This 110-nucleotide sequence from Streptomyces kasugaensis belongs to the Rfam family "Glycine riboswitch aptamer".

RNA sequence: GCAGAUCUGAAAAGCGAGCCGCGGUGAUGUGGCUCCACCCAAGGUGCAAACCGGGUUCCGCGCACGGACUCCCGGCGAACCUCUCAGGUUCCGAUGACAGAUGGGGAGAA
Numbered sequence: 001g002c003a004g005a006u007c008u009g010a011a012a013a014g015c016g017a018g019c020c021g022c023g024g025u026g027a028u029g030u031g032g033c034u035c036c037a038c039c040c041a042a043g044g045u046g047c048a049a050a051c052c053g054g055g056u057u058c059c060g061c062g063c064a065c066g067g068a069c070u071c072c073c074g075g076c077g078a079a080c081c082u083c084u085c086a087g088g089u090u091c092c093g094a095u096g097a098c099a100g101a102u103g104g105g106g107a108g109a110a
Stems, first nucleotide, its partner, number of pairs: 002105001005102005016035006037089003041084001044083001046081001051075005
The source organism's lineage runs through Bacteria, Bacillati, Actinomycetota, Kitasatosporales and Streptomyces. For this family Rfam cites "A glycine-dependent riboswitch that uses cooperative binding to control gene expression" (Mandal et al., Science, 2004). A search with the family's covariance model found it, with a score of 32 bits.